[Rfam]
RNA sequence: UUUGCAUUAAUGAAGGCUACACAGGAAACCUACAUGAGGAUUUGUGUGGAUCUGAUAUUUAGCAAA
Numbered sequence: 001u002u003u004g005c006a007u008u009a010a011u012g013a014a015g016g017c018u019a020c021a022c023a024g025g026a027a028a029c030c031u032a033c034a035u036g037a038g039g040a041u042u043u044g045u046g047u048g049g050a051u052c053u054g055a056u057a058u059u060u061a062g063c064a065a066a
Base pairs, nucleotide, nucleotide: 001066002065003064004063005062015052016051017049018048019047020046021045022044023043024042029039030038031037
The record is a 66-nucleotide sequence from Suricata suricatta, which matches "Selenocysteine insertion sequence 1" in Rfam. The source organism's lineage runs through Eukaryota, Metazoa, Teleostomi, Laurasiatheria and Suricata. A search with the family's covariance model found it, with a score of 42 bits. For this family Rfam cites "A novel RNA structural motif in the selenocysteine insertion element of eukaryotic selenoprotein mRNAs" (Walczak et al., RNA, 1996). Gene Ontology term of the family: selenocysteine incorporation.